[Rfam]
Rfam assigns this 114-nucleotide RNA sequence from Acer yangbiense to the family "Small nucleolar RNA snoR100". By type it is an H/ACA-box small nucleolar RNA. The match comes from Rfam's covariance-model search (62 bits).
RNA sequence: CAAUGAAGGAAGCAUGGUUAUGUGCACAGAAAUCAAAAUUGCAAAAUUGGGUCUGCUGCAUGUCUGCCCCUUAUGAAAAUUCUCUCUGAUUUUGGGGCCUGGUUUAUUACACUU
Numbered sequence: 001c002a003a004u005g006a007a008g009g010a011a012g013c014a015u016g017g018u019u020a021u022g023u024g025c026a027c028a029g030a031a032a033u034c035a036a037a038a039u040u041g042c043a044a045a046a047u048u049g050g051g052u053c054u055g056c057u058g059c060a061u062g063u064c065u066g067c068c069c070c071u072u073a074u075g076a077a078a079a080u081u082c083u084c085u086c087u088g089a090u091u092u093u094g095g096g097g098c099c100u101g102g103u104u105u106a107u108u109a110c111a112c113u114u
Stems, first nucleotide, its partner, number of pairs: 012025004049100005062090003066084001